[Rfam]
RNA: T-box leader
RNA sequence: AUAAAUCCUAAGAAAAGGGAUAGUAAUCAGGUGCAAGGUUAAAGAGAGCUGAAGAUGGUGAGAUUUCAGUACUAAUGUUAAUGAUGAAUGGGCCUUUGAGGAGCGAUAUGAAAUCUUUUGAGAGUAGUUUAGCCGUUAGUCGCACGUUAUAGCGAAUGAGAUAUGUUAGUAUCGAAUUAUGAGAGGCAUUUUAUGCAACUUAGGUGGCAACGCGGAUAAUCUCCGUCCUAUAU
Numbered sequence: 001a002u003a004a005a006u007c008c009u010a011a012g013a014a015a016a017g018g019g020a021u022a023g024u025a026a027u028c029a030g031g032u033g034c035a036a037g038g039u040u041a042a043a044g045a046g047a048g049c050u051g052a053a054g055a056u057g058g059u060g061a062g063a064u065u066u067c068a069g070u071a072c073u074a075a076u077g078u079u080a081a082u083g084a085u086g087a088a089u090g091g092g093c094c095u096u097u098g099a100g101g102a103g104c105g106a107u108a109u110g111a112a113a114u115c116u117u118u119u120g121a122g123a124g125u126a127g128u129u130u131a132g133c134c135g136u137u138a139g140u141c142g143c144a145c146g147u148u149a150u151a152g153c154g155a156a157u158g159a160g161a162u163a164u165g166u167u168a169g170u171a172u173c174g175a176a177u178u179a180u181g182a183g184a185g186g187c188a189u190u191u192u193a194u195g196c197a198a199c200u201u202a203g204g205u206g207g208c209a210a211c212g213c214g215g216a217u218a219a220u221c222u223c224c225g226u227c228c229u230a231u232a233u
Stems, first nucleotide, its partner, number of pairs: 007101002015096004026085004037073003048070006103133002106130001108128002134146003186196004201230004212226005